[Rfam]
Nucleotides: 229
Stems, first nucleotide, its partner, number of pairs: 002196007021183005
Number, partner (000 for none) and nucleotide at each position: 001000c002196c003195g004194c005193u006192c007191g008190a009000g010000g011000g012000g013000c014000g015000c016000u017000g018000c019000a020000g021183c022182g023181a024180c025179c026000a027000g028000c029000a030000g031000c032000u033000u034000u035000u036000c037000u038000g039000c040000c041000a042000g043000c044000a045000c046000c047000a048000a049000g050000u051000g052000c053000u054000u055000c056000c057000g058000g059000g060000g061000a062000g063000g064000c065000u066000c067000g068000g069000g070000g071000u072000c073000g074000g075000a076000c077000c078000g079000u080000c081000g082000a083000u084000g085000g086000c087000a088000a089000g090000g091000a092000u093000g094000c095000c096000a097000u098000c099000g100000a101000u102000g103000a104000g105000c106000c107000u108000a109000c110000a111000g112000g113000g114000a115000c116000g117000u118000a119000u120000u121000c122000a123000c124000g125000g126000c127000g128000u129000g130000u131000c132000c133000g134000a135000a136000c137000c138000c139000g140000a141000g142000c143000c144000u145000c146000c147000a148000c149000g150000u151000g152000g153000g154000c155000a156000c157000g158000a159000u160000g161000c162000c163000a164000g165000c166000a167000a168000a169000a170000g171000g172000c173000a174000a175000a176000a177000g178000a179025g180024g181023u182022c183021g184000u185000c186000a187000g188000g189000c190008u191007c192006g193005a194004g195003c196002g197000u198000u199000g200000u201000c202000g203000u204000u205000a206000a207000a208000g209000a210000a211000a212000c213000a214000a215000c216000c217000g218000c219000g220000c221000c222000c223000a224000u225000u226000c227000g228000c229000u
A member of the RNA family "SAH (S-adenosyl-L-homocysteine) riboswitch aptamer" from Halopseudomonas laoshanensis, 229 nucleotides long. Rfam links the family to the GO terms S-adenosylhomocysteine metabolic process and regulation of gene expression. NCBI's taxonomy places the organism under Bacteria, Pseudomonadati, Pseudomonadota, Gammaproteobacteria, Halopseudomonas.